[Rfam]
RNA sequence: GGCCGUUGUCACGGCUAUAGGGUUCAGUUAUCUAAAGCCUCGAUUUAUCGGGGUUUUUUGUUAUCUGACUACAGAAUAACUGGGCUUACGCCCUUUUUUU
Numbered sequence: 001g002g003c004c005g006u007u008g009u010c011a012c013g014g015c016u017a018u019a020g021g022g023u024u025c026a027g028u029u030a031u032c033u034a035a036a037g038c039c040u041c042g043a044u045u046u047a048u049c050g051g052g053g054u055u056u057u058u059u060g061u062u063a064u065c066u067g068a069c070u071a072c073a074g075a076a077u078a079a080c081u082g083g084g085c086u087u088a089c090g091c092c093c094u095u096u097u098u099u100u
Stems, first nucleotide, its partner, number of pairs: 034057009082093004